Small nucleolar RNA SNORA48: a 145-nucleotide RNA sequence from Rattus norvegicus. The source organism's lineage runs through Eukaryota, Craniata, Rodentia, Murinae and Rattus. For this family Rfam cites "Mapping to nucleotide resolution of pseudouridine residues in large subunit ribosomal RNAs from representative eukaryotes, prokaryotes, archaebacteria, mitochondria and chloroplasts" (Ofengand and Bakin, J Mol Biol, 1997). It scores 59 bits against the family's covariance model. The family is grouped with related families in Rfam's "SNORA48 clan".
Nucleotides: 145
Stems, first nucleotide, its partner, number of pairs: 004062005013055003019048003023042001025040004084140005099133001101131001105129003110124002113121001
Number, partner (000 for none) and nucleotide at each position: 001000a002000u003000a004062u005061c006060c007059u008058g009000g010000c011000a012000g013055u014054g015053g016000g017000c018000g019048a020047a021046g022000a023042g024000a025040c026039a027038c028037c029000u030000u031000g032000u033000g034000a035000a036000u037028g038027g039026u040025g041000a042023u043000g044000u045000u046021c047020u048019u049000a050000u051000u052000a053015u054014c055013a056000g057000u058008c059007a060006g061005g062004a063000g064000c065000a066000g067000a068000g069000c070000a071000g072000a073000u074000g075000g076000c077000a078000g079000u080000c081000c082000u083000u084140u085139g086138u087137u088136c089000a090000u091000c092000c093000u094000a095000g096000c097000u098000c099133g100000a101131c102000g103000c104000c105129u106128g107127g108000c109000u110124u111123g112000g113121u114000g115000g116000c117000c118000a119000a120000a121113g122000c123111u124110a125000u126000u127107u128106u129105a130000u131101g132000c133099c134000u135000a136088g137087g138086a139085c140084a141000c142000a143000u144000a145000a